[Rfam]
RNA sequence: AUGACCUUUAAGAAUAGUCCUGUGAGGCUAAAAAGGAACGUGACAUAUAUGUGGAGAUACAUAUAUCAGAAACCCCUUUUCCUCAUGGAAAAAGGGGUUUUCUUGU
Number, nucleotide and partner (000 for none) at each position: 001a000002u000003g000004a000005c036006c035007u034008u033009u032010a000011a000012g000013a000014a000015u030016a029017g028018u027019c026020c000021u000022g000023u000024g000025a000026g019027g018028c017029u016030a015031a000032a009033a008034a007035g006036g005037a000038a000039c000040g000041u000042g000043a000044c000045a066046u065047a064048u063049a062050u061051g060052u059053g058054g000055a000056g000057a000058u053059a052060c051061a050062u049063a048064u047065a046066u045067c000068a000069g101070a100071a099072a098073c097074c096075c095076c094077u093078u092079u091080u090081c000082c088083u000084c000085a000086u000087g000088g082089a000090a080091a079092a078093a077094g076095g075096g074097g073098u072099u071100u070101u069102c000103u000104u000105g000106u000
A member of the RNA family "PyrR binding site" from Oceanobacillus zhaokaii, 106 nucleotides long. The organism belongs to Oceanobacillus, within Bacteria. Rfam's curators write: This family represents the PyrR binding site and terminator structure. The family's consensus secondary structure is taken from published work. It is annotated as a cis-regulatory element. A search with the family's covariance model found it, with a score of 62 bits.